mir-181 microRNA precursor family: an 82-nucleotide sequence from Arenaria interpres.
Pairs were carried over by alignment from the consensus structure, which was predicted with PFOLD.
On this family, see Lagos-Quintana et al., RNA 2003: "New microRNAs from mouse and human".
Nucleotides: 082
Stems, first nucleotide, its partner, number of pairs: 002081002004078005014069009026059006033052004
Number, partner (000 for none) and nucleotide at each position: 001000a002081g003080g004078u005077c006076a007075c008074a009000a010000u011000c012000a013000a014069c015068a016067u017066u018065c019064a020063u021062u022061g023000c024000u025000g026059u027058c028057g029056g030055u031054g032000g033052g034051u035050u036049u037000a038000a039000c040000u041000a042000u043000g044000u045000g046000g047000a048000a049036a050035a051034g052033c053000u054031c055030a056029c057028u058027g059026a060000a061022c062021a063020a064019u065018g066017a067016a068015u069014g070000c071000a072000a073000c074008u075007g076006u077005g078004g079000c080003c081002c082000c